[Rfam]
mir-276 microRNA precursor family: an 88-nucleotide sequence from Rhipicephalus microplus.
RNA sequence: GCGUUGCUUUAUCGCGAGCGAGGUAUGGAGUUCUUACUGUGAGUCGAACCCAGGUAGGAACUUCAUACCAUGCUCGCGAUGGAAUGCA
Numbered sequence: 001g002c003g004u005u006g007c008u009u010u011a012u013c014g015c016g017a018g019c020g021a022g023g024u025a026u027g028g029a030g031u032u033c034u035u036a037c038u039g040u041g042a043g044u045c046g047a048a049c050c051c052a053g054g055u056a057g058g059a060a061c062u063u064c065a066u067a068c069c070a071u072g073c074u075c076g077c078g079a080u081g082g083a084a085u086g087c088a
Stems, first nucleotide, its partner, number of pairs: 012079003017074004022069005028063010
The family's consensus secondary structure was predicted with RNAalifold.